RNA sequence: CCAUGGUGGCGGAGGCUGGGGACAGCCCUAUGGUGGCAAG
Numbered sequence: 001c002c003a004u005g006g007u008g009g010c011g012g013a014g015g016c017u018g019g020g021g022a023c024a025g026c027c028c029u030a031u032g033g034u035g036g037c038a039a040g
Base pairs, nucleotide, nucleotide: 001033002032003031004030005029006028
RNA: Prion pseudoknot